RNA sequence: CACGAUAAUGGCAAACCUAUCGAAAGGUAGGGACGCAAAGCUAAAGGGCCUUCUGAAGAUGGCAGCCAGCUACCGAAG
Numbered sequence: 001c002a003c004g005a006u007a008a009u010g011g012c013a014a015a016c017c018u019a020u021c022g023a024a025a026g027g028u029a030g031g032g033a034c035g036c037a038a039a040g041c042u043a044a045a046g047g048g049c050c051u052u053c054u055g056a057a058g059a060u061g062g063c064a065g066c067c068a069g070c071u072a073c074c075g076a077a078g
Stems, first nucleotide, its partner, number of pairs: 001078001003075002011036002016031006034065001039071004046067002048063003
The family of this 78-nucleotide RNA from Paenibacillus sp. FSL H8-0548 is "c-di-GMP-I-GGC riboswitch aptamer". The family's consensus secondary structure is taken from published work. Clan: c-di-GMP_I riboswitch clan. NCBI's taxonomy places the organism under Bacteria, Bacillota, Caryophanales, Paenibacillaceae, Paenibacillus.